[Rfam]
RNA sequence: GAUCACGACGCGGGGUGCCCGGAGGGCCGGGCUGAGAUCACACCCGUCGAACCUGCUCUAGUUCGCACUAGCGAAGGGACGUCAGCCGGUGACCUU
Numbered sequence: 001g002a003u004c005a006c007g008a009c010g011c012g013g014g015g016u017g018c019c020c021g022g023a024g025g026g027c028c029g030g031g032c033u034g035a036g037a038u039c040a041c042a043c044c045c046g047u048c049g050a051a052c053c054u055g056c057u058c059u060a061g062u063u064c065g066c067a068c069u070a071g072c073g074a075a076g077g078g079a080c081g082u083c084a085g086c087c088g089g090u091g092a093c094c095u096u
Stems, first nucleotide, its partner, number of pairs: 007083004011046004016040001017032005052077003058071004